This 95-nucleotide RNA sequence from Desulforamulus ferrireducens belongs to the Rfam family "pan motif". Rfam classes the family as a cis-regulatory element. Pairs were carried over by alignment from the consensus structure, which is taken from published work. The source organism's lineage runs through Bacteria, Bacillota, Clostridia, Peptococcaceae and Desulforamulus.

RNA sequence: CGGGUAGUAUCCCGCUGGGAACUGCACCUGGAUAAACCUCAUAACAAAAAAAUACGAUGAAUGCCGCUUGGAGCCGGAUGGACCGAGACGGGGGG
Numbered sequence: 001c002g003g004g005u006a007g008u009a010u011c012c013c014g015c016u017g018g019g020a021a022c023u024g025c026a027c028c029u030g031g032a033u034a035a036a037c038c039u040c041a042u043a044a045c046a047a048a049a050a051a052a053u054a055c056g057a058u059g060a061a062u063g064c065c066g067c068u069u070g071g072a073g074c075c076g077g078a079u080g081g082a083c084c085g086a087g088a089c090g091g092g093g094g095g
Stems, first nucleotide, its partner, number of pairs: 002028002004025005010020002064091003067087005074081002